MIR2593 microRNA precursor family: a 114-nucleotide RNA sequence from Medicago truncatula.

RNA sequence: AUAUAAGUAAAAUUGACUUUUUAGGUUCAUUCAUUUAAUGAUGUAUGUGGUCCAUAUUAUAAACCACAUACAUCAUUAAAUGAAUGAGCCUAAAAAAGUCAAUUUUGCUUAUAU
Numbered sequence: 001a002u003a004u005a006a007g008u009a010a011a012a013u014u015g016a017c018u019u020u021u022u023a024g025g026u027u028c029a030u031u032c033a034u035u036u037a038a039u040g041a042u043g044u045a046u047g048u049g050g051u052c053c054a055u056a057u058u059a060u061a062a063a064c065c066a067c068a069u070a071c072a073u074c075a076u077u078a079a080a081u082g083a084a085u086g087a088g089c090c091u092a093a094a095a096a097a098g099u100c101a102a103u104u105u106u107g108c109u110u111a112u113a114u
Base pairs, nucleotide, nucleotide: 002113003112004111005110006109007108009106010105011104012103013102015100016099017098018096019095020094021093022092023091024090026088027087028086029085030084031083032082033081034080035079036078037077038076039075040074041073042072043071048066049065050064051063